[Rfam]
RNA: TPP riboswitch aptamer (THI element)
RNA sequence: CGUGAACACUAGGGGUGCCGCAAGGCUGAGACGAACGCAAGGUUCGGACCCUUUGAACCUGAUCUGGUUUAUACCAGCGUAGGGAAGUGGAGAGUGAAUAUC
Number, nucleotide and partner (000 for none) at each position: 001c000002g000003u000004g000005a000006a000007c089008a088009c087010u086011a052012g051013g050014g049015g000016u046017g026018c025019c024020g000021c000022a000023a000024g019025g018026c017027u000028g000029a000030g000031a000032c000033g045034a044035a043036c042037g000038c000039a000040a000041g000042g036043u035044u034045c033046g016047g000048a000049c014050c013051c012052u011053u000054u000055g000056a000057a000058c083059c082060u081061g080062a000063u000064c077065u076066g075067g074068u000069u000070u000071a000072u000073a000074c067075c066076a065077g064078c000079g000080u061081a060082g059083g058084g000085a000086a010087g009088u008089g007090g000091a000092g000093a000094g000095u000096g000097a000098a000099u000100a000101u000102c000